Rfam assigns this 52-nucleotide sequence from Puniceibacterium sediminis to the family "ffh sRNA". It scores 59 bits against the family's covariance model. The literature on the family includes a 2009 paper in BMC Genomics by Meyer et al., "Identification of candidate structured RNAs in the marine organism 'Candidatus Pelagibacter ubique'".
[Rfam]
RNA sequence: ACAGCCCGGGAUCGCCCUCCGUCAGCGCGUUGCGCCCACGGGGGCGCACCCG
Numbered sequence: 001a002c003a004g005c006c007c008g009g010g011a012u013c014g015c016c017c018u019c020c021g022u023c024a025g026c027g028c029g030u031u032g033c034g035c036c037c038a039c040g041g042g043g044g045c046g047c048a049c050c051c052g
Base pairs, nucleotide, nucleotide: 016044017043018042019041020040021039022038025035026034027033028032